[Rfam]
RNA sequence: CCAGCGUCCCUGCUACGGAUCGUAGGAGCUGACCCCCUGGUCAUUGCCUGCGAUCCGUGCAGGCUCCCCGCUG
Numbered sequence: 001c002c003a004g005c006g007u008c009c010c011u012g013c014u015a016c017g018g019a020u021c022g023u024a025g026g027a028g029c030u031g032a033c034c035c036c037c038u039g040g041u042c043a044u045u046g047c048c049u050g051c052g053a054u055c056c057g058u059g060c061a062g063g064c065u066c067c068c069c070g071c072u073g
Stems, first nucleotide, its partner, number of pairs: 002073005009063005015058012030043005